[Rfam]
RNA sequence: AAAAAAACAAAAGCCCCGCCAUGAAGGGGAUUGAAAC
Numbered sequence: 001a002a003a004a005a006a007a008c009a010a011a012a013g014c015c016c017c018g019c020c021a022u023g024a025a026g027g028g029g030a031u032u033g034a035a036a037c
Stems, first nucleotide, its partner, number of pairs: 013032001014029004
Source information:
CRISPR RNA direct repeat element: a 37-nucleotide RNA sequence from Roseiflexus castenholzii. Lineage of the source: Bacteria > Chloroflexota > Roseiflexaceae > Roseiflexus > Roseiflexus castenholzii. Rfam 15.1 lists 210 matches to the family in 7 species.